[Rfam]
RNA: Molybdenum/Tungsten riboswitch aptamer (Moco RNA motif)
Organism: Grimontia hollisae
RNA sequence: GGAUACAGAUAACUCCGAAGCCUGUCUCGCUAAGUUUGACAGAAUACGCGAUUUAGGCCGUGACCCAGAGUCACCAGGGCGGCUAUAGAAAUGUGCCCGUCUCCCGUAUUUGGAAAGGUGUUUUGUGGCUGUUCAA
Numbered sequence: 001g002g003a004u005a006c007a008g009a010u011a012a013c014u015c016c017g018a019a020g021c022c023u024g025u026c027u028c029g030c031u032a033a034g035u036u037u038g039a040c041a042g043a044a045u046a047c048g049c050g051a052u053u054u055a056g057g058c059c060g061u062g063a064c065c066c067a068g069a070g071u072c073a074c075c076a077g078g079g080c081g082g083c084u085a086u087a088g089a090a091a092u093g094u095g096c097c098c099g100u101c102u103c104c105c106g107u108a109u110u111u112g113g114a115a116a117g118g119u120g121u122u123u124u125g126u127g128g129c130u131g132u133u134c135a136a
Stems, first nucleotide, its partner, number of pairs: 003130001006127001011122003015118002020058005027051004034045004060074005077102006084095004103113002